[Rfam]
Nucleotides: 082
Base pairs, nucleotide, nucleotide: 003080004079005078007076009074010073015068016067017066018065020063021062022061023059025058026057029055030054031053032052034050
Number, partner (000 for none) and nucleotide at each position: 001000c002000c003080a004079c005078a006000a007076u008000a009074g010073g011000u012000c013000u014000u015068g016067g017066c018065a019000c020063u021062g022061g023059g024000a025058g026057a027000a028000u029055u030054c031053a032052c033000a034050g035000g036000a037000g038000u039000u040000a041000a042000g043000c044000a045000a046000u047000u048000a049000c050034c051000c052032g053031u054030g055029a056000a057026u058025u059023u060000c061022c062021u063020g064000a065018u066017g067016c068015c069000u070000u071000a072000g073010c074009c075000c076007a077000c078005u079004g080003u081000g082000g